Shown here is an 83-nucleotide sequence from Alligator sinensis, a member of the family "mir-130 microRNA precursor family".
Pairs were carried over by alignment from the consensus structure, which was predicted with PFOLD.
The organism belongs to Alligator, within Eukaryota.
RNA sequence: CCCUGUCCAAGGCUCUUUUCACAUUGUACUACUAUAUGAGCCCCUGCCAAGCAAUGCAAUGUAAAAAGGGCAUUGGGUAGGUG
Dot-bracket structure: (.(.((((((.((((((((..(((((((.(......................).)))))))..)))))))).))))))..).)
About this RNA
The match comes from Rfam's covariance-model search (77 bits). Gene Ontology terms of the family: RISC complex and miRNA-mediated post-transcriptional gene silencing.